[Rfam]
Small nucleolar RNA SNORA53: a 246-nucleotide sequence from Ochotona princeps. Pairs were carried over by alignment from the consensus structure, which was predicted with RNAalifold. It is one of the family's seed sequences. The source organism's lineage runs through Eukaryota, Sarcopterygii, Mammalia, Theria and Ochotona. The snoRNA ACA53 belongs to the H/ACA family of pseudouridylation guide snoRNAs.
RNA sequence: AACAUGCUUCCUUAGAUCCGCCUUUGUGGAUGAAUCUUAAACUGAGUUCUACUGGUAAACGUCCCGUUUCUUGUAGUUCCAGUUAUAGAGACAUCCGGCAACUUUUCUGGUUGUACAGUCAAAGGUGCUUGAGUCAUUGGCAUGUGAGAGAAGUACACCUGCUUGCUAGUCCAACGUUCUGAUGGAAAUGGCAUACGGUUGUGAUGUCAGUUGGUACUGUCAGGACCAGACUGGUGUGCGGACACU
Number, nucleotide and partner (000 for none) at each position: 001a000002a145003c144004a143005u142006g141007c140008u139009u000010c000011c133012u132013u131014a130015g129016a000017u000018c000019c127020g126021c125022c124023u123024u122025u121026g120027u097028g096029g095030a094031u093032g092033a000034a000035u089036c088037u087038u000039a000040a000041a083042c082043u081044g080045a000046g079047u000048u000049c076050u075051a074052c073053u000054g000055g070056u000057a069058a068059a067060c066061g000062u000063c000064c000065c000066g060067u059068u058069u057070c055071u000072u000073g052074u051075a050076g049077u000078u000079c046080c044081a043082g042083u041084u000085a000086u000087a037088g036089a035090g000091a000092c032093a031094u030095c029096c028097g027098g114099c113100a112101a111102c110103u109104u000105u000106u000107c000108u000109g103110g102111u101112u100113g099114u098115a000116c000117a000118g000119u000120c026121a025122a024123a023124g022125g021126u020127g019128c000129u015130u014131g013132a012133g011134u000135c000136a000137u000138u000139g008140g007141c006142a005143u004144g003145u002146g000147a000148g000149a000150g000151a000152a000153g000154u000155a000156c000157a000158c000159c241160u240161g239162c238163u000164u000165g000166c234167u000168a232169g231170u230171c229172c000173a000174a000175c000176g000177u000178u224179c223180u222181g221182a220183u219184g218185g217186a000187a000188a000189u216190g215191g000192c000193a212194u000195a207196c206197g205198g000199u000200u000201g000202u000203g000204a000205u197206g196207u195208c000209a000210g000211u000212u193213g000214g000215u190216a189217c185218u184219g183220u182221c181222a180223g179224g178225a000226c000227c000228a000229g171230a170231c169232u168233g000234g166235u000236g000237u000238g162239c161240g160241g159242a000243c000244a000245c000246u000